[Rfam]
RNA sequence: AGUUACUAACUUUAAGAGCGCUGGACGCGUCAGCCGCUCGCAUAUGUCACCGUCAUUUGAAGCCUUUGACCACGGAUGUACUGGCACUGGCAAAAUGACUUCGGGAAGGUCGGUGCGUUUCGCCCCGGCCUUUUUUUAU
Numbered sequence: 001a002g003u004u005a006c007u008a009a010c011u012u013u014a015a016g017a018g019c020g021c022u023g024g025a026c027g028c029g030u031c032a033g034c035c036g037c038u039c040g041c042a043u044a045u046g047u048c049a050c051c052g053u054c055a056u057u058u059g060a061a062g063c064c065u066u067u068g069a070c071c072a073c074g075g076a077u078g079u080a081c082u083g084g085c086a087c088u089g090g091c092a093a094a095a096u097g098a099c100u101u102c103g104g105g106a107a108g109g110u111c112g113g114u115g116c117g118u119u120u121c122g123c124c125c126c127g128g129c130c131u132u133u134u135u136u137u138a139u
Base pairs, nucleotide, nucleotide: 003049005047006046007044008043016039017038018037019036020035052099053098054097055096056095057094058093062091063090064089067086068085070084071083072082100138103135104134105133106132107131108130109129110128111127112126113125115123116122117121
Shown here is a 139-nucleotide RNA sequence from Paenochrobactrum gallinarii, a member of the family "Alphaproteobacterial sRNA ar35". It scores 95 bits against the family's covariance model. The family has 13 seed sequences and 266 matches in Rfam 15.1. The family's RNA type in Rfam is small RNA.